[Rfam]
RNA sequence: GCUGGCAGUGAUGACCCAAUAAAUUCAAGCUCAACAGACCGGAAUGCAGGCUUCUCUAAUAUUCUUAGAGAUGUUUGCGUGUCGACAACCCCGCUGAACUGAGCCAUC
Numbered sequence: 001g002c003u004g005g006c007a008g009u010g011a012u013g014a015c016c017c018a019a020u021a022a023a024u025u026c027a028a029g030c031u032c033a034a035c036a037g038a039c040c041g042g043a044a045u046g047c048a049g050g051c052u053u054c055u056c057u058a059a060u061a062u063u064c065u066u067a068g069a070g071a072u073g074u075u076u077g078c079g080u081g082u083c084g085a086c087a088a089c090c091c092c093g094c095u096g097a098a099c100u101g102a103g104c105c106a107u108c
Stems, first nucleotide, its partner, number of pairs: 001108001003106004
RNA: Small nucleolar RNA Z107/R87
Organism: Rosa chinensis